[Rfam]
RNA sequence: UCAGUCGGCCAGGCGGCCGCACCGUCCAGCGCCGAAAGGCGGGCGGUGAGGAAAGUCCGGGCUCCACGGAAACACGGUGCCGGGUAACACCCGGCGGGGGCGACCCCAGGGACAGUGCCACAGAAAGCAGACCGCCCGACCGAUCUUCGCUUCGGCGAAAGCCUUCGUUCGGGUAAGGGUGAAAGGGUGUGGCAAGAGCACACCGCGCGACCGGCAACGGAAGCGGCAUGGUAAACCCCACCGGGAGCAAAACCGAAUAGGGAUGGCGCGGCGCUUCGGCACCAGGGCGUUUCCGCUCUUGUCAUCCGGGUUGGUUGCUUGAGGCCGUUCGCAAGGACGGUCCCAGAUGAAUGGUCGCUGCAAUGUCAUCGCCAGAUGGCGGCGUACAGAACCCGGCUUAACGGCCGACUGACACC
Numbered sequence: 001u002c003a004g005u006c007g008g009c010c011a012g013g014c015g016g017c018c019g020c021a022c023c024g025u026c027c028a029g030c031g032c033c034g035a036a037a038g039g040c041g042g043g044c045g046g047u048g049a050g051g052a053a054a055g056u057c058c059g060g061g062c063u064c065c066a067c068g069g070a071a072a073c074a075c076g077g078u079g080c081c082g083g084g085u086a087a088c089a090c091c092c093g094g095c096g097g098g099g100g101c102g103a104c105c106c107c108a109g110g111g112a113c114a115g116u117g118c119c120a121c122a123g124a125a126a127g128c129a130g131a132c133c134g135c136c137c138g139a140c141c142g143a144u145c146u147u148c149g150c151u152u153c154g155g156c157g158a159a160a161g162c163c164u165u166c167g168u169u170c171g172g173g174u175a176a177g178g179g180u181g182a183a184a185g186g187g188u189g190u191g192g193c194a195a196g197a198g199c200a201c202a203c204c205g206c207g208c209g210a211c212c213g214g215c216a217a218c219g220g221a222a223g224c225g226g227c228a229u230g231g232u233a234a235a236c237c238c239c240a241c242c243g244g245g246a247g248c249a250a251a252a253c254c255g256a257a258u259a260g261g262g263a264u265g266g267c268g269c270g271g272c273g274c275u276u277c278g279g280c281a282c283c284a285g286g287g288c289g290u291u292u293c294c295g296c297u298c299u300u301g302u303c304a305u306c307c308g309g310g311u312u313g314g315u316u317g318c319u320u321g322a323g324g325c326c327g328u329u330c331g332c333a334a335g336g337a338c339g340g341u342c343c344c345a346g347a348u349g350a351a352u353g354g355u356c357g358c359u360g361c362a363a364u365g366u367c368a369u370c371g372c373c374a375g376a377u378g379g380c381g382g383c384g385u386a387c388a389g390a391a392c393c394c395g396g397c398u399u400a401a402c403g404g405c406c407g408a409c410u411g412a413c414a415c416c
Stems, first nucleotide, its partner, number of pairs: 001412010012359007020048008053399003057396005062247004071292002075243005080094005095109001096107004110238002115236002117232003132178002134174006141167002186204006205227001206225003211220003251316004261307006284299005323342008

Bacterial RNase P class A: a 416-nucleotide RNA from Notoacmeibacter marinus. Lineage of the source: Bacteria > Alphaproteobacteria > Hyphomicrobiales > Notoacmeibacteraceae > Notoacmeibacter. A search with the family's covariance model found it, with a score of 302 bits. Gene Ontology terms of the family: dimeric ribonuclease P complex, tRNA processing and ribonuclease P activity. Pairs were carried over by alignment from the consensus structure, which is taken from published work.